[Rfam]
RNA sequence: GGUCUUGAGCGCCAGCGCGAAGCCCCGGCUCGCUGGCCGGCAACCCUCCACCCGCGGUGGGGUGCCCCGGGAGACGACCUGGACCGGCCGGCAAUCCCGCCGACGGUCAAGCGCGAGCA
Numbered sequence: 001g002g003u004c005u006u007g008a009g010c011g012c013c014a015g016c017g018c019g020a021a022g023c024c025c026c027g028g029c030u031c032g033c034u035g036g037c038c039g040g041c042a043a044c045c046c047u048c049c050a051c052c053c054g055c056g057g058u059g060g061g062g063u064g065c066c067c068c069g070g071g072a073g074a075c076g077a078c079c080u081g082g083a084c085c086g087g088c089c090g091g092c093a094a095u096c097c098c099g100c101c102g103a104c105g106g107u108c109a110a111g112c113g114c115g116a117g118c119a
Stems, first nucleotide, its partner, number of pairs: 001079004009038001011037006021030002039066003044062003048057002082108005088102001090101003
Shown here is a 119-nucleotide sequence from Janibacter alkaliphilus, a member of the family "SAM (S-adenosyl methionine) riboswitch aptamer". It scores 96 bits against the family's covariance model. SAM-IV is a mRNA element that regulates gene expression via direct sensing of S-adenosylmethionine (SAM or AdoMet). The family's consensus secondary structure is taken from published work.